[Rfam]
RNA sequence: GAUAUGGUCUCUCGGCAAAGGCCUUGCAGGAGGAUUUGCCAAACCACCAUGAGGUGCUGCCUUUCCAAGAGGACGGUACUGAGCGUCAUGGAAACGGUAA
Number, nucleotide and partner (000 for none) at each position: 001g011002a010003u000004a000005u000006g000007g000008u000009c000010u002011c001012u000013c000014g040015g039016c038017a037018a036019a035020g000021g000022c033023c032024u031025u030026g000027c000028a000029g000030g025031a024032g023033g022034a000035u019036u018037u017038g016039c015040c014041a000042a000043a000044c000045c000046a000047c091048c090049a089050u088051g087052a086053g080054g079055u000056g077057c076058u075059g000060c072061c071062u070063u069064u000065c000066c000067a000068a000069g063070a062071g061072g060073a000074c000075g058076g057077u056078a000079c054080u053081g000082a000083g000084c000085g000086u052087c051088a050089u049090g048091g047092a000093a000094a000095c000096g000097g000098u000099a000100a000
This 100-nucleotide RNA from Desulfonatronum sp. SC1 belongs to the Rfam family "Group II catalytic intron D1-D4-2". A search with the family's covariance model found it, with a score of 60 bits. NCBI's taxonomy places the organism under Bacteria, Desulfovibrionia, Desulfovibrionales, Desulfonatronaceae, Desulfonatronum.